[Rfam]
RNA sequence: CGUUUAUCUCAGGGCGGGGCGAAACUCCCCACCGGCGGUAACAUGCAGAAAAGUUAUUUCAAUAUGCAUGAAGCCCGCGAGCGCUUUGUUCCUUAAGUAUUGCUUAAGAUAAUAAAGGUCAGCAGAUCCAGUGUGAAUCUGGAGCCGACGGUUAUAGUCCGGAUGGGAGAGAAUAACG
Numbered sequence: 001c002g003u004u005u006a007u008c009u010c011a012g013g014g015c016g017g018g019g020c021g022a023a024a025c026u027c028c029c030c031a032c033c034g035g036c037g038g039u040a041a042c043a044u045g046c047a048g049a050a051a052a053g054u055u056a057u058u059u060c061a062a063u064a065u066g067c068a069u070g071a072a073g074c075c076c077g078c079g080a081g082c083g084c085u086u087u088g089u090u091c092c093u094u095a096a097g098u099a100u101u102g103c104u105u106a107a108g109a110u111a112a113u114a115a116a117g118g119u120c121a122g123c124a125g126a127u128c129c130a131g132u133g134u135g136a137a138u139c140u141g142g143a144g145c146c147g148a149c150g151g152u153u154a155u156a157g158u159c160c161g162g163a164u165g166g167g168a169g170a171g172a173a174u175a176a177c178g
Base pairs, nucleotide, nucleotide: 003176004175007172008171009170010169017029018028019027031158032157033147034146035078036077037076038075073145074144081123082122127143128142129141130140131139149161150160151159
Shown here is a 178-nucleotide RNA sequence from Providencia sneebia, a member of the family "FMN riboswitch aptamer (RFN element)".
The family's consensus secondary structure is taken from published work.
The organism belongs to Providencia sneebia, within Bacteria.
About the family: The RFN element is a highly conserved domain that is found frequently in the 5'-untranslated regions of prokaryotic mRNAs that encode for flavin mononucleotide (FMN) biosynthesis and transport proteins.